The record is a 62-nucleotide part of an RNA from an uncultured bacterium, which matches "Bacterial large subunit ribosomal RNA" in Rfam.
RNA sequence: GGUCGAAGGGCUAUGCAUAUCGCAAGAUAUGAAUGCCUGACGGCGUACCUUUUGCAUAAUGG
Numbered sequence: 001g002g003u004c005g006a007a008g009g010g011c012u013a014u015g016c017a018u019a020u021c022g023c024a025a026g027a028u029a030u031g032a033a034u035g036c037c038u039g040a041c042g043g044c045g046u047a048c049c050u051u052u053u054g055c056a057u058a059a060u061g062g
Base pairs, nucleotide, nucleotide: 002044003043004042005041008038009037010036011035048061050059
Its family is annotated with structural constituent of ribosome and ribosome in the Gene Ontology. The base pairs follow the family's consensus structure, which is taken from published work.